[Rfam]
RNA: Group II catalytic intron D1-D4-6
Organism: Bradyrhizobium ivorense
RNA sequence: GAAGUCCCAUCCGGCCAAAGCCGAAGCAGGCAAGCCGGGACCGAGUCUUGCGAGCGUCGCGGCAACGCGGGGUGUGAAGUGUAGACAGGAGCCAUGCGGGGUGCGGGAAUGAGCCUCGAAAGGUGGAUGUUCGGGGAGGCCGAGUGUGUUCCCUAGUCACGAAGGCUGCAUGAGCAUCGUCGUUAUGCGAGACGAUGUCGCUCCGUCGGGGUCGAUGGCCG
Dot-bracket structure: ...........((((....((....[[..))..))))...((..((((((((.((.(((((....))))).)).))...)).)))).))....................((.((((((..............(.(((((((..(((...........)))...)))....((.((((((((.....]]..)))))))))))))).)))))))).)......